[Rfam]
RNA sequence: UUCUUAUCCAGAAAGGUGGAGGGACUGGCCCGACGAAACCUUAGCAGCAGACUUAGAGAAGUACUGUGCUAAUUCCAGAAGCGAUUGGCUUGUAGAUAAGAA
Numbered sequence: 001u002u003c004u005u006a007u008c009c010a011g012a013a014a015g016g017u018g019g020a021g022g023g024a025c026u027g028g029c030c031c032g033a034c035g036a037a038a039c040c041u042u043a044g045c046a047g048c049a050g051a052c053u054u055a056g057a058g059a060a061g062u063a064c065u066g067u068g069c070u071a072a073u074u075c076c077a078g079a080a081g082c083g084a085u086u087g088g089c090u091u092g093u094a095g096a097u098a099a100g101a102a
Base pairs, nucleotide, nucleotide: 001102002101003100004099005098006097007096008095013042014041015040016039017038021031022030023029025078026077027076028075043070044069045068046067048066049065051062052061053060054059074094079091080090081089082088
RNA: SAM riboswitch aptamer (S box leader)